Shown here is an 87-nucleotide RNA sequence from Cohaesibacter marisflavi, a member of the family "sRNA-Xcc1". A search with the family's covariance model found it, with a score of 55 bits. The base pairs follow the family's consensus structure, which was predicted with RNAalifold. On this family, see Chen et al., RNA Biol 2011: "sRNA-Xcc1, an integron-encoded transposon- and plasmid-transferred trans-acting sRNA, is under the positive control of the key virulence regulators HrpG and HrpX of Xanthomonas campestris pathovar campestris".

[Rfam]
RNA sequence: GGCGGGAGGGCAGCGAAUAGAAAACCCUUUCGAGGGGAAUAAGCUCGCCUGACGUGUAUCGGGUUCUGAACCUCCCGCCUACCAGAC
Numbered sequence: 001g002g003c004g005g006g007a008g009g010g011c012a013g014c015g016a017a018u019a020g021a022a023a024a025c026c027c028u029u030u031c032g033a034g035g036g037g038a039a040u041a042a043g044c045u046c047g048c049c050u051g052a053c054g055u056g057u058a059u060c061g062g063g064u065u066c067u068g069a070a071c072c073u074c075c076c077g078c079c080u081a082c083c084a085g086a087c
Stems, first nucleotide, its partner, number of pairs: 001079009012045003016040001025036003047064006